[Rfam]
RNA sequence: AUUGAGUGGGAGUAAUCGCAUAAAAUAAUUCCUUGUAUUCAAAUGAUGCGAGAAGCUAAAAAGAAUAAAUUGAGCAGUAGUUCCAAGUGGUUAUAUUUGGGCAAAAGAUAAGACCGUAGCGUUUAGCUGC
Numbered sequence: 001a002u003u004g005a006g007u008g009g010g011a012g013u014a015a016u017c018g019c020a021u022a023a024a025a026u027a028a029u030u031c032c033u034u035g036u037a038u039u040c041a042a043a044u045g046a047u048g049c050g051a052g053a054a055g056c057u058a059a060a061a062a063g064a065a066u067a068a069a070u071u072g073a074g075c076a077g078u079a080g081u082u083c084c085a086a087g088u089g090g091u092u093a094u095a096u097u098u099g100g101g102c103a104a105a106a107g108a109u110a111a112g113a114c115c116g117u118a119g120c121g122u123u124u125a126g127c128u129g130c
Base pairs, nucleotide, nucleotide: 006034008032009031010030011029013027014026037123043117044116045115051066080102081101083100084099085098086097087096088095089094
Rfam assigns this 130-nucleotide RNA sequence from Fannyhessea vaginae to the family "Streptococcus sRNA SpR18". The literature on the family includes a 2012 paper in PLoS Pathog by Mann et al., "Control of virulence by small RNAs in Streptococcus pneumoniae". NCBI's taxonomy places the organism under Bacteria, Bacillati, Atopobiaceae, Fannyhessea, Fannyhessea vaginae. The family's RNA type in Rfam is small RNA.